U1 spliceosomal RNA: a 164-nucleotide sequence from Sapajus apella. The match comes from Rfam's covariance-model search (146 bits). The base pairs follow the family's consensus structure, which is taken from published work. Rfam's curators write: U1 is a small nuclear RNA (snRNA) component of the spliceosome (involved in pre-mRNA splicing). Its 5' end forms complementary base pairs with the 5' splice junction, thus defining the 5' donor site of an intron. There are significant differences in sequence and secondary structure between metazoan and yeast U1 snRNAs, the latter being much longer (568 nucleotides as compared to 164 nucleotides in human). On this family, see Oubridge et al., Nature 1994: "Crystal structure at 1.92 A resolution of the RNA-binding domain of the U1A spliceosomal protein complexed with an RNA hairpin". The family's RNA type in Rfam is spliceosomal small nuclear RNA. Lineage of the source: Eukaryota > Vertebrata > Sarcopterygii > Mammalia > Sapajus.
RNA sequence: AUGCUUACCUGGCAGGGGAGAAACCAUGAUCACGAAGGUGGUUUUCCCAGGGCAAGUCUUAUCCAUUGCACUCCGGAUGUGCUGACACCUGCAAUUUCCCCAAAUGUGGGAAACUCGAUUGCAUAAUUUGUGAUAGUGGGGGACUGCGUUCACGCUUUCCCCAG
Numbered sequence: 001a002u003g004c005u006u007a008c009c010u011g012g013c014a015g016g017g018g019a020g021a022a023a024c025c026a027u028g029a030u031c032a033c034g035a036a037g038g039u040g041g042u043u044u045u046c047c048c049a050g051g052g053c054a055a056g057u058c059u060u061a062u063c064c065a066u067u068g069c070a071c072u073c074c075g076g077a078u079g080u081g082c083u084g085a086c087a088c089c090u091g092c093a094a095u096u097u098c099c100c101c102a103a104a105u106g107u108g109g110g111a112a113a114c115u116c117g118a119u120u121g122c123a124u125a126a127u128u129u130g131u132g133a134u135a136g137u138g139g140g141g142g143a144c145u146g147c148g149u150u151c152a153c154g155c156u157u158u159c160c161c162c163a164g
Stems, first nucleotide, its partner, number of pairs: 012122004016048006023042005049090003056083001058081001060079005092117001094115001095113003099109002137163005143158001146155003